[Rfam]
RNA sequence: AGUGGUUCUCAACAGUUCAACAGUUCUUAGAGAAAAUUGUGAAAUGUUUAGGACCACUUG
Numbered sequence: 001a002g003u004g005g006u007u008c009u010c011a012a013c014a015g016u017u018c019a020a021c022a023g024u025u026c027u028u029a030g031a032g033a034a035a036a037u038u039g040u041g042a043a044a045u046g047u048u049u050a051g052g053a054c055c056a057c058u059u060g
Stems, first nucleotide, its partner, number of pairs: 001058006008051002011048004016043004
Overview: Shown here is a 60-nucleotide RNA from Paralichthys olivaceus, a member of the family "mir-203 microRNA precursor family". Pairs were carried over by alignment from the consensus structure, which was predicted with RNAalifold.